[Rfam]
Nucleotides: 396
Stems, first nucleotide, its partner, number of pairs: 001392010011381001012334007020048009053379003057376005062221004074217005079093005094108001095106004109212002114210002116206003131152002133148006160178006179201001180199003185194003225291004235282006263273003298317008
Number, partner (000 for none) and nucleotide at each position: 001392c002391c003390a004389g005388u006387u007386g008385g009384c010383u011381g012334g013333g014332c015331g016330g017329c018328c019000g020048c021047a022046c023045c024044g025043g026042c027041g028040g029000g030000a031000a032000c033000c034000g035000a036000a037000a038000g039000g040028u041027u042026g043025c044024c045023g046022g047021u048020g049000a050000g051000g052000a053379a054378a055377g056000u057376c058375c059374g060373g061372g062221c063220u064219c065218c066000a067000g068000g069000a070000a071000a072000c073000a074217c075216g076215g077214u078213g079093c080092c081091g082090g083089c084000u085000a086000a087000c088000g089083g090082c091081c092080g093079g094108c095106g096105g097104g098103g099000g100000c101000g102000a103098c104097c105096c106095c107000a108094g109212g110211g111000a112000a113000a114210g115209u116206g117205c118204c119000a120000c121000a122000g123000a124000g125000a126000g127000a128000a129000u130000a131152c132151c133148g134147c135146c136145c137144g138143g139000c140000a141000u142000g143138c144137c145136g146135g147134g148133u149000a150000a151132g152131g153000g154000u155000g156000a157000a158000a159000g160178g161177g162176u163175g164174g165173g166000g167000u168000a169000a170000g171000a172000g173165c174164c175163c176162a177161c178160c179201g180199c181198g182197c183000g184000a185194c186193u187192g188000g189000u190000a191000a192187c193186a194185g195000a196000a197182g198181c199180g200000g201179c202000a203000a204118g205117g206116u207000a208000a209115a210114c211110c212109c213078c214077a215076c216075c217074g218065g219064g220063a221062g222000c223000a224000a225291g226290a227289c228288c229000g230000a231000a232000u233000a234000g235282g236281g237280a238279u239278g240277g241000c242000g243000c244000g245000a246000g247000g248000g249000g250000a251000a252000a253000c254000u255000c256000u257000c258000g259000g260000g261000g262000c263273g264272g265271u266000u267000u268000c269000c270000a271265g272264c273263c274000c275000a276000g277240u278239c279238a280237u281236c282235c283000g284000g285000g286000u287000a288228g289227g290226u291225u292000g293000c294000g295000u296000g297000a298317g299316g300315u301314g302313g303312a304311c305310g306000g307000c308000a309000a310305c311304g312303u313302c314301c315300a316299u317298c318000c319000a320000a321000g322000a323000a324000g325000a326000a327000u328018g329017g330016u331015c332014g333013c334012c335000g336000c337000g338000u339000c340000g341000g342000g343000c344000u345000g346000u347000c348000u349000u350000c351000g352000g353000a354000c355000u356000g357000c358000c359000c360000g361000g362000c363000c364000g365000u366000a367000c368000a369000g370000a371000a372061c373060c374059c375058g376057g377055c378054u379053u380000a381011c382000a383010g384009g385008c386007c387006a388005a389004c390003u391002g392001g393000c394000g395000c396000u
The record is a 396-nucleotide RNA from Aerobium aerolatum, which matches "Bacterial RNase P class A" in Rfam. The family's RNA type in Rfam is ribozyme.